[Rfam]
RNA sequence: GUCAGCAACAGCUCAGCGGUUACUUCUCGACACGGAAUUGUAAUUCUGAAAACCUUUCGGGGUUCGAAACCCGCGGGCGCCACCUGAC
Numbered sequence: 001g002u003c004a005g006c007a008a009c010a011g012c013u014c015a016g017c018g019g020u021u022a023c024u025u026c027u028c029g030a031c032a033c034g035g036a037a038u039u040g041u042a043a044u045u046c047u048g049a050a051a052a053c054c055u056u057u058c059g060g061g062g063u064u065c066g067a068a069a070c071c072c073g074c075g076g077g078c079g080c081c082a083c084c085u086g087a088c
Stems, first nucleotide, its partner, number of pairs: 001088005011078004016074004024068003

The family of this 88-nucleotide sequence is "Vault RNA". The family's consensus secondary structure is taken from published work. Rfam's curators put it in the seed alignment. By type it is a non-coding RNA gene. For this family Rfam cites "Evolution of Vault RNAs" (Stadler et al., Mol Biol Evol, 2009).